[Rfam]
RNA: FMN riboswitch aptamer (RFN element)
Organism: Pontivivens insulae
RNA sequence: CGACGUUCUCGGGGCGGGGUGCAAUUCCCCACCGGCGGUUAUAGCCCGCGAGCGGCCUUGCAUUGGCGAGGUGUCAGCAGAUCUGGUGAAAUUCCAGGGCCGACAGUGACAGUCUGGAUGUGAGAGAACGGGA
Numbered sequence: 001c002g003a004c005g006u007u008c009u010c011g012g013g014g015c016g017g018g019g020u021g022c023a024a025u026u027c028c029c030c031a032c033c034g035g036c037g038g039u040u041a042u043a044g045c046c047c048g049c050g051a052g053c054g055g056c057c058u059u060g061c062a063u064u065g066g067c068g069a070g071g072u073g074u075c076a077g078c079a080g081a082u083c084u085g086g087u088g089a090a091a092u093u094c095c096a097g098g099g100c101c102g103a104c105a106g107u108g109a110c111a112g113u114c115u116g117g118a119u120g121u122g123a124g125a126g127a128a129c130g131g132g133a
Stems, first nucleotide, its partner, number of pairs: 004130007017029003031113002033102002035049004044100002052078002082098005104116003